[Rfam]
RNA sequence: CUGCCACACUUACGAGUUCCACUAUUCAAGUUUUGAGCGUAUUUGAAAUCAAAAACUUGACACGUUGAGCUCGUGUGUGCGUUGCGG
Numbered sequence: 001c002u003g004c005c006a007c008a009c010u011u012a013c014g015a016g017u018u019c020c021a022c023u024a025u026u027c028a029a030g031u032u033u034u035g036a037g038c039g040u041a042u043u044u045g046a047a048a049u050c051a052a053a054a055a056c057u058u059g060a061c062a063c064g065u066u067g068a069g070c071u072c073g074u075g076u077g078u079g080c081g082u083u084g085c086g087g
Base pairs, nucleotide, nucleotide: 001087002086003085004084005081007079008078009077012074013073014072015071016070017069018068019067021065022064027059028058029057030056031055032054033053034052
RNA: mir-969 microRNA precursor family